[Rfam]
RNA sequence: GUCUUGUCUGUGAUGUCUCUAAACACAAAUGUCUGAACAAAUGAUUUUAUGAUUCAUUCAUUGUUACUGAGACAAGAC
Numbered sequence: 001g002u003c004u005u006g007u008c009u010g011u012g013a014u015g016u017c018u019c020u021a022a023a024c025a026c027a028a029a030u031g032u033c034u035g036a037a038c039a040a041a042u043g044a045u046u047u048u049a050u051g052a053u054u055c056a057u058u059c060a061u062u063g064u065u066a067c068u069g070a071g072a073c074a075a076g077a078c
Base pairs, nucleotide, nucleotide: 002077003076004075005074006073007072008071